[Rfam]
RNA sequence: AUAGCCUUCGGUAAACCCUCUGAAAGGAGGGGGGCACGAAGCCAUGGGUCUAAAGUAUUCAGCUAUGAUCGCCGGGCUGCAGCAA
Numbered sequence: 001a002u003a004g005c006c007u008u009c010g011g012u013a014a015a016c017c018c019u020c021u022g023a024a025a026g027g028a029g030g031g032g033g034g035c036a037c038g039a040a041g042c043c044a045u046g047g048g049u050c051u052a053a054a055g056u057a058u059u060c061a062g063c064u065a066u067g068a069u070c071g072c073c074g075g076g077c078u079g080c081a082g083c084a085a
Base pairs, nucleotide, nucleotide: 011037012036016032017031018030019029020027021026035071040078041077042076043075045074046073047072048069049068050067